Shown here is a 130-nucleotide RNA sequence from Hydra vulgaris, a member of the family "Small Cajal body specific RNA 8". The organism belongs to Hydra, within Eukaryota.
Nucleotides: 130
Base pairs, nucleotide, nucleotide: 002056003055004054005053006052007051016043017042018041019040023036069123070122071121072120073119074118082109083108084107087104088103089102090101
Number, partner (000 for none) and nucleotide at each position: 001000u002056g003055g004054a005053a006052g007051g008000u009000c010000a011000g012000a013000u014000a015000c016043a017042a018041u019040g020000u021000c022000a023036g024000a025000a026000u027000a028000u029000a030000g031000a032000u033000u034000a035000g036023c037000u038000g039000a040019c041018a042017u043016u044000c045000a046000u047000u048000a049000u050000u051007c052006u053005u054004u055003c056002c057000u058000a059000u060000a061000g062000a063000a064000a065000u066000u067000g068000u069123u070122g071121c072120u073119u074118u075000c076000u077000g078000a079000u080000g081000a082109c083108c084107a085000c086000a087104u088103u089102g090101u091000u092000a093000a094000a095000g096000a097000a098000u099000a100000c101090a102089u103088a104087a105000u106000g107084u108083g109082g110000a111000c112000a113000g114000a115000u116000a117000c118074g119073a120072a121071g122070u123069g124000u125000a126000c127000a128000u129000g130000u

It scores 55 bits against the family's covariance model. About the family: scaRNAs are a specific class of small nuclear RNAs which localise to the Cajal bodies and guide the modification of RNA polymerase II transcribed spliceosomal RNAs U1, U2, U4, U5 and U12. U92 belong to the H/ACA box class of guide RNAs as it has the predicted hairpin-hinge-hairpin-tail structure, conserved H/ACA-box motifs and is found associated with GAR1. For this family Rfam cites "Cajal body-specific small nuclear RNAs: a novel class of 2'-O-methylation and pseudouridylation guide RNAs" (Darzacq et al., EMBO J, 2002).